[Rfam]
RNA: Potassium channel RNA editing signal
Organism: Cynoglossus semilaevis
RNA sequence: GUGGGCUACGGCGACAUCUACCCUAAAACCUUACUGGGAAAGAUAGUCGGGGGUCUGUGCUGUAUUGCUGGAGUACUCGUGAUAGCUCUGCCUAUUCCUAUUAUUGUAAAUAAC
Numbered sequence: 001g002u003g004g005g006c007u008a009c010g011g012c013g014a015c016a017u018c019u020a021c022c023c024u025a026a027a028a029c030c031u032u033a034c035u036g037g038g039a040a041a042g043a044u045a046g047u048c049g050g051g052g053g054u055c056u057g058u059g060c061u062g063u064a065u066u067g068c069u070g071g072a073g074u075a076c077u078c079g080u081g082a083u084a085g086c087u088c089u090g091c092c093u094a095u096u097c098c099u100a101u102u103a104u105u106g107u108a109a110a111u112a113a114c
Base pairs, nucleotide, nucleotide: 001114002113004111007108008107009106010105011104013102014101016099020095037077038076040074049063051061